[Rfam]
RNA sequence: GGUUUGCACAGCAGCACAAAGUAGCGGCAUAAAUUUGUGCCGCUACUAUUUGUGCUGCUGGAAACU
Numbered sequence: 001g002g003u004u005u006g007c008a009c010a011g012c013a014g015c016a017c018a019a020a021g022u023a024g025c026g027g028c029a030u031a032a033a034u035u036u037g038u039g040c041c042g043c044u045a046c047u048a049u050u051u052g053u054g055c056u057g058c059u060g061g062a063a064a065c066u
Stems, first nucleotide, its partner, number of pairs: 001066003005062001007060001010059008018049001020047010
RNA: mir-16 microRNA precursor family
Organism: Alligator mississippiensis